[Rfam]
RNA sequence: GAAAGGCCUCUUGCUCAAAUGAGUGUUCCAUUGGAAGAAGAAGAAUACAUGCUUAUAUGUUCCUUCUUUCUUUUUUGUGGGAAUGAAACACUCAUUGAGGCAAGAAGCCUUUC
Numbered sequence: 001g002a003a004a005g006g007c008c009u010c011u012u013g014c015u016c017a018a019a020u021g022a023g024u025g026u027u028c029c030a031u032u033g034g035a036a037g038a039a040g041a042a043g044a045a046u047a048c049a050u051g052c053u054u055a056u057a058u059g060u061u062c063c064u065u066c067u068u069u070c071u072u073u074u075u076u077g078u079g080g081g082a083a084u085g086a087a088a089c090a091c092u093c094a095u096u097g098a099g100g101c102a103a104g105a106a107g108c109c110u111u112u113c
Base pairs, nucleotide, nucleotide: 004110005109006108007107010104011103012102013101014100015099018096019095020094021093022092023091024090025089026088027087029085030084
Dot-bracket structure: ...((((..((((((..((((((((((.((.....................................................)).))))))))))..))))))..))))...